[Rfam]
RNA: Group II catalytic intron D1-D4-3
Organism: Pusillimonas noertemannii
RNA sequence: AUGAGGGCGACCGAGUGUGGGGAGGAAGCGUCUAGCGAAUCUGCGAGCCGAUGAAUAAAAACCGGAUAUAAGGCGUUGCCAAGCAGGGCGAGCGGGCCUCGAACCGCGAAGCUCUUGUGAUCAAGGCGAAGCGGCGUAAAUUCGGCGGUUAUGCAGAGAAGGAGUAGGUUC
Dot-bracket structure: ((..((....))..))...........(.(((...(...(((((((((((...........((((((.....(((.(((...(..((((..((((........))))...))))............)...))).)))..))))))))))).))))))....)....))).)
Numbered sequence: 001a002u003g004a005g006g007g008c009g010a011c012c013g014a015g016u017g018u019g020g021g022g023a024g025g026a027a028g029c030g031u032c033u034a035g036c037g038a039a040u041c042u043g044c045g046a047g048c049c050g051a052u053g054a055a056u057a058a059a060a061a062c063c064g065g066a067u068a069u070a071a072g073g074c075g076u077u078g079c080c081a082a083g084c085a086g087g088g089c090g091a092g093c094g095g096g097c098c099u100c101g102a103a104c105c106g107c108g109a110a111g112c113u114c115u116u117g118u119g120a121u122c123a124a125g126g127c128g129a130a131g132c133g134g135c136g137u138a139a140a141u142u143c144g145g146c147g148g149u150u151a152u153g154c155a156g157a158g159a160a161g162g163a164g165u166a167g168g169u170u171c
Stems, first nucleotide, its partner, number of pairs: 001016002005012002028171001030169003036162001040157006046150005062145006073137003077133003083127001086114004092107004